Metazoan signal recognition particle RNA: a 290-nucleotide RNA from Melopsittacus undulatus. Lineage of the source: Eukaryota > Amniota > Sauropsida > Australaves > Melopsittacus. From the family's description: The signal recognition particle (SRP) is a universally conserved ribonucleoprotein. The family's consensus secondary structure is taken from published work. Gene Ontology terms of the family: signal recognition particle, endoplasmic reticulum targeting and SRP-dependent cotranslational protein targeting to membrane, signal sequence recognition. Clan: SRP clan. A search with the family's covariance model found it, with a score of 199 bits.
RNA sequence: GCCGGGCGUGGUGGCGUGCACCUGUAGUCCCAGCUACUCGGAAGGCUGAGCCCGCCGGAUUGCUUGAGCCCAGGAGUUCUGGGCUGCAGUGCGCUAUGCUGAGCGGGCGUCCAGUUAAUAAUAUGGUGAGCCCCGGGGAGCUGGGACACACCAGGUUGACUAAGGAGGGGUGAACCGGCCCAGGUCAGAGAUGGAGCAGGUCAAAGCUCCUGUGCCGGUCGGUAGUGGGAUCGUGCCUGUGAAUAGCCACUGCAGCAUAGCCUGGGCAACACAGAGAGAUGUGGGUUCCU
Numbered sequence: 001g002c003c004g005g006g007c008g009u010g011g012u013g014g015c016g017u018g019c020a021c022c023u024g025u026a027g028u029c030c031c032a033g034c035u036a037c038u039c040g041g042a043a044g045g046c047u048g049a050g051c052c053c054g055c056c057g058g059a060u061u062g063c064u065u066g067a068g069c070c071c072a073g074g075a076g077u078u079c080u081g082g083g084c085u086g087c088a089g090u091g092c093g094c095u096a097u098g099c100u101g102a103g104c105g106g107g108c109g110u111c112c113a114g115u116u117a118a119u120a121a122u123a124u125g126g127u128g129a130g131c132c133c134c135g136g137g138g139a140g141c142u143g144g145g146a147c148a149c150a151c152c153a154g155g156u157u158g159a160c161u162a163a164g165g166a167g168g169g170g171u172g173a174a175c176c177g178g179c180c181c182a183g184g185u186c187a188g189a190g191a192u193g194g195a196g197c198a199g200g201u202c203a204a205a206g207c208u209c210c211u212g213u214g215c216c217g218g219u220c221g222g223u224a225g226u227g228g229g230a231u232c233g234u235g236c237c238u239g240u241g242a243a244u245a246g247c248c249a250c251u252g253c254a255g256c257a258u259a260g261c262c263u264g265g266g267c268a269a270c271a272c273a274g275a276g277a278g279a280u281g282u283g284g285g286u287u288c289c290u
Stems, first nucleotide, its partner, number of pairs: 001046003004023003008019003028043001030041001048288008060277002063274002068267007079260003083256009093247005099241001103240008111229002115225003119158004124153005130147001132145005160164001166211006177202004185194003